mir-29 microRNA precursor family: a 65-nucleotide sequence from Coregonus sp. 'balchen'.
Its family is annotated with gene silencing by miRNA and RISC complex in the Gene Ontology.
It scores 60 bits against the family's covariance model.
Rfam's curators write: This family represents the microRNA (miRNA) precursors mir-29.
RNA sequence: AGAAGCUGGUUUCCUGUGGUGGUCUAGAUGUUCCCUGUUCUAGCACCAUAUGAAAUCAGUGUUCU
Numbered sequence: 001a002g003a004a005g006c007u008g009g010u011u012u013c014c015u016g017u018g019g020u021g022g023u024c025u026a027g028a029u030g031u032u033c034c035c036u037g038u039u040c041u042a043g044c045a046c047c048a049u050a051u052g053a054a055a056u057c058a059g060u061g062u063u064c065u
Base pairs, nucleotide, nucleotide: 001065002064003063004062005060006059007058008057009056010055011054012053013052016049017048018047019046020045021044025042026041027040028039